[Rfam]
RNA sequence: GUGACCGUGUGCUCCCACGUCCGGCCGUCGCCCGGGACGGCAUGCCGGCCGCCGAACUGGUCGCCGUCGGUCAGGAUGUCCAGAUGCGAGCUGUGCCCGUACUUGCCCUCGCCGAUCACCGUGGCCUUGCCGUGGGCGAUCAGGUAUAUCUCCUCGACCGGCGCGUCCUUGGCGACGACGGUGUCGCCGGCCGAGUACUCGCGCUGCACGAAGGAGGCUGCCAGCGUCCGUAGCAUCUCGGCGUCGUCGAAUCCGCGCAGCAGCGGCAGCUCGGCCAAGGUCUCCGGGACCACGCGGAUCUGGUCGCCGGUCUUGUCGAAGGCGACCCGGCCGUCGCCGACCUGGUAGGCCAGGCGGCGGUUGACCCGGUAGGUGCCGCCGGACACCUGGACCCAGGGCAGCAUCCGCAGCAGCCAGCGGGAGGUGAUGCCCUGCAUCUGCGGGACGGACUUGGUGGUGGUGGCCAGGUUGCGCGCCGCGUCGGUGCUCAGGCUGAGCCGGCGGUCCUGGUCG
Numbered sequence: 001g002u003g004a005c006c007g008u009g010u011g012c013u014c015c016c017a018c019g020u021c022c023g024g025c026c027g028u029c030g031c032c033c034g035g036g037a038c039g040g041c042a043u044g045c046c047g048g049c050c051g052c053c054g055a056a057c058u059g060g061u062c063g064c065c066g067u068c069g070g071u072c073a074g075g076a077u078g079u080c081c082a083g084a085u086g087c088g089a090g091c092u093g094u095g096c097c098c099g100u101a102c103u104u105g106c107c108c109u110c111g112c113c114g115a116u117c118a119c120c121g122u123g124g125c126c127u128u129g130c131c132g133u134g135g136g137c138g139a140u141c142a143g144g145u146a147u148a149u150c151u152c153c154u155c156g157a158c159c160g161g162c163g164c165g166u167c168c169u170u171g172g173c174g175a176c177g178a179c180g181g182u183g184u185c186g187c188c189g190g191c192c193g194a195g196u197a198c199u200c201g202c203g204c205u206g207c208a209c210g211a212a213g214g215a216g217g218c219u220g221c222c223a224g225c226g227u228c229c230g231u232a233g234c235a236u237c238u239c240g241g242c243g244u245c246g247u248c249g250a251a252u253c254c255g256c257g258c259a260g261c262a263g264c265g266g267c268a269g270c271u272c273g274g275c276c277a278a279g280g281u282c283u284c285c286g287g288g289a290c291c292a293c294g295c296g297g298a299u300c301u302g303g304u305c306g307c308c309g310g311u312c313u314u315g316u317c318g319a320a321g322g323c324g325a326c327c328c329g330g331c332c333g334u335c336g337c338c339g340a341c342c343u344g345g346u347a348g349g350c351c352a353g354g355c356g357g358c359g360g361u362u363g364a365c366c367c368g369g370u371a372g373g374u375g376c377c378g379c380c381g382g383a384c385a386c387c388u389g390g391a392c393c394c395a396g397g398g399c400a401g402c403a404u405c406c407g408c409a410g411c412a413g414c415c416a417g418c419g420g421g422a423g424g425u426g427a428u429g430c431c432c433u434g435c436a437u438c439u440g441c442g443g444g445a446c447g448g449a450c451u452u453g454g455u456g457g458u459g460g461u462g463g464c465c466a467g468g469u470u471g472c473g474c475g476c477c478g479c480g481u482c483g484g485u486g487c488u489c490a491g492g493c494u495g496a497g498c499c500g501g502c503g504g505u506c507c508u509g510g511u512c513g
Stems, first nucleotide, its partner, number of pairs: 007392002010389002019331002023328002026324004032318001037316004042311002047308003051304004057233001060231002063228001065226003068114004078106001080105001082103002086100003090096001122223002125220001133212001134209001136207003141201001142199002153193001158190006164180001168177001170175001235299004243293002246290003253286001255284001257282001259281001261279001263275001264273002332345001355381006364374003394434007402426003406421001408419001410418001440479004446473002449470001450468006480512001483507002487503001489501001491499001